raiA RNA: a 208-nucleotide sequence from Fonticella tunisiensis. By type it is a riboswitch. Taxonomically the source falls in Fonticella (Bacteria, Bacillati, Bacillota, Eubacteriales). A search with the family's covariance model found it, with a score of 196 bits.

RNA sequence: GCUAAUUAGGUCUGUGGUUGAAAAUCGAUGCCAGCCGCAGGCGAAACGAUCCACGUAAGCCAAACAAAGUUUGGUGAGCAUGGUGCGGUUUAGAAGUAAGUCCUGCCGGGGCAUUAGGCCUCGAGAGGGGGAUUAGUGAGAGGAAUAAACCUUAAGCAAAACCUCCAGCAGGCGGGUGUGGGGGCAAAGACCAGGUCAGCUAAUUAGC
Dot-bracket structure: (((((((((..((((((((........((([.(((((((.]........((......(.(.((......)).).).....[)))))))))...........((((((((((.......)))))...((((.....((....((......))....))....))))..)))))....)))......]..)))))...))))))))))))